[Rfam]
RNA sequence: UCUCGAUAAAGGCAAAACUGGCGAAAGCCAGUGACGCAAAGCUAACAGGGGCUUAGGUGCAAAUGCGCACUAUGCCAGCCAGCUACCGUA
Numbered sequence: 001u002c003u004c005g006a007u008a009a010a011g012g013c014a015a016a017a018c019u020g021g022c023g024a025a026a027g028c029c030a031g032u033g034a035c036g037c038a039a040a041g042c043u044a045a046c047a048g049g050g051g052c053u054u055a056g057g058u059g060c061a062a063a064u065g066c067g068c069a070c071u072a073u074g075c076c077a078g079c080c081a082g083c084u085a086c087c088g089u090a
Base pairs, nucleotide, nucleotide: 012037013036017032018031019030020029021028022027040084041083042082043081048080049079050076051075052074057070058069059068060067
RNA: c-di-GMP-I riboswitch aptamer